[Rfam]
Nucleotides: 180
Stems, first nucleotide, its partner, number of pairs: 001180006035095007
Number, partner (000 for none) and nucleotide at each position: 001180g002179u003178g004177c005176c006175c007000u008000g009000u010000g011000a012000u013000u014000a015000u016000a017000a018000a019000a020000a021000g022000a023000c024000g025000c026000g027000u028000u029000a030000u031000u032000c033000u034000g035095a036094g037093g038092g039091a040090g041089a042000a043000a044000a045000c046000c047000c048000a049000c050000u051000g052000c053000c054000g055000g056000u057000u058000c059000u060000c061000u062000c063000u064000g065000a066000a067000a068000c069000c070000u071000a072000g073000u074000c075000u076000u077000u078000u079000u080000c081000u082000u083000c084000a085000u086000c087000u088000c089041u090040u091039u092038u093037u094036c095035u096000u097000c098000a099000u100000u101000c102000c103000u104000c105000u106000c107000c108000u109000c110000c111000u112000u113000c114000c115000c116000c117000c118000c119000u120000u121000c122000c123000c124000a125000u126000u127000c128000a129000c130000c131000u132000c133000u134000g135000c136000u137000g138000u139000g140000g141000c142000g143000c144000u145000g146000g147000g148000u149000c150000c151000g152000c153000u154000g155000a156000a157000c158000g159000u160000g161000a162000u163000u164000a165000u166000g167000a168000g169000a170000g171000a172000u173000g174000a175006g176005g177004g178003c179002a180001u

The family of this 180-nucleotide RNA sequence from Anguilla anguilla is "Small nucleolar RNA SNORD97". Lineage of the source: Eukaryota > Bilateria > Deuterostomia > Euteleostomi > Anguilla. On this family, see Vitali et al., Nucleic Acids Res 2003: "Identification of 13 novel human modification guide RNAs". It is annotated as a C/D-box small nucleolar RNA.